[Rfam]
RNA: Plastid-rpl16 group II-D1 intron
Organism: Anisodus acutangulus
RNA sequence: AAGAGUAUUGAGCCAAUAAAGACUAUGAAGAUUGACUCAAGAACCAA
Numbered sequence: 001a002a003g004a005g006u007a008u009u010g011a012g013c014c015a016a017u018a019a020a021g022a023c024u025a026u027g028a029a030g031a032u033u034g035a036c037u038c039a040a041g042a043a044c045c046a047a
Stems, first nucleotide, its partner, number of pairs: 008040001010038003014034004